Shown here is a 112-nucleotide RNA from Nakamurella alba, a member of the family "SAM (S-adenosyl methionine) riboswitch aptamer".
A search with the family's covariance model found it, with a score of 104 bits.
Rfam's curators write: SAM-IV is a mRNA element that regulates gene expression via direct sensing of S-adenosylmethionine (SAM or AdoMet). SAM-IV riboswitches share conserved nucleotide positions with the previously described SAM-I riboswitches sequence analysis and molecular recognition experiments suggest that SAM-I and SAM-IV riboswitches share similar ligand binding sites, but have different scaffolds.
[Rfam]
RNA sequence: GGUCAUGAGUUCCAGCACCAAGCUCCGGCUCGCUGGACGGCAACCCUCCACCACGGUGGGGUGCUCCGGAUGAGGACCUGGCCGGCCCGUUCGGGCCCGGCAAGCGUGGAUG
Numbered sequence: 001g002g003u004c005a006u007g008a009g010u011u012c013c014a015g016c017a018c019c020a021a022g023c024u025c026c027g028g029c030u031c032g033c034u035g036g037a038c039g040g041c042a043a044c045c046c047u048c049c050a051c052c053a054c055g056g057u058g059g060g061g062u063g064c065u066c067c068g069g070a071u072g073a074g075g076a077c078c079u080g081g082c083c084g085g086c087c088c089g090u091u092c093g094g095g096c097c098c099g100g101c102a103a104g105c106g107u108g109g110a111u112g
Stems, first nucleotide, its partner, number of pairs: 001078004009038001011037006021030002039065003044061003048056002081101004085096004